[Rfam]
The family of this 168-nucleotide sequence from Amborella trichopoda is "MIR8565 microRNA precursor family". Pairs were carried over by alignment from the consensus structure, which was predicted with RNAalifold. Lineage of the source: Eukaryota > Streptophyta > Euphyllophyta > Amborellales > Amborella.
RNA sequence: UCCACACCCAUGUGUGUAGGACCCCAAAUGAUCACCAUUAAAUUUGGUACAGAUCUCUAGAAAAGUUAUCACAGAAAAGUUAUCACAUGGGCUUGAGACUCAACUUUUCUAGAGAUCUGUGUCAAAUUUAAUGGUGAUCCUUUGGGGUCCUACAUACAUGGGUAUGGG
Dot-bracket structure: .(((.((((((((.((((((((((((((.(((.((((((((((((((((((((((((((((((((((.(((......................))).....)))))))))))))))))))))))))))))))))).))).)))))))))))))).)))))))).))).